mir-130 microRNA precursor family: an 82-nucleotide sequence from Aquarana catesbeiana.
RNA sequence: GGCUGCCUGACACUCUUUCCCUGUUGCACUACUGUAAAACAAUGCAUAAGCAGUGCAAUGAUGAAAGGGCAUCAGUCUGAAC
Numbered sequence: 001g002g003c004u005g006c007c008u009g010a011c012a013c014u015c016u017u018u019c020c021c022u023g024u025u026g027c028a029c030u031a032c033u034g035u036a037a038a039a040c041a042a043u044g045c046a047u048a049a050g051c052a053g054u055g056c057a058a059u060g061a062u063g064a065a066a067g068g069g070c071a072u073c074a075g076u077c078u079g080a081a082c
Base pairs, nucleotide, nucleotide: 001082005077007075008074009073010072013069014068015067016066017065018064019063022060023059024058025057026056027055028054029053030052
Its family is annotated with miRNA-mediated post-transcriptional gene silencing and RISC complex in the Gene Ontology. The literature on the family includes a 2002 paper in Curr Biol by Lagos-Quintana et al., "Identification of tissue-specific microRNAs from mouse". The family's consensus secondary structure was predicted with PFOLD.